The family of this 57-nucleotide RNA from Synechococcus sp. WH 7803 is "Cyanobacterial functional RNA 1".
RNA sequence: GUGCGGGCGUAUGCCCACACACUCCUCACACCCCCCGGCCCGACGCGUUCGGGCUUU
Number, nucleotide and partner (000 for none) at each position: 001g020002u019003g018004c000005g016006g015007g014008c013009g000010u000011a000012u000013g008014c007015c006016c005017a000018c003019a002020c001021a000022c000023u000024c000025c000026u000027c000028a000029c000030a000031c000032c000033c000034c000035c000036c000037g055038g054039c053040c052041c051042g050043a049044c000045g000046c000047g000048u000049u043050c042051g041052g040053g039054c038055u037056u000057u000
The organism belongs to Synechococcus, within Bacteria. By type it is a small RNA.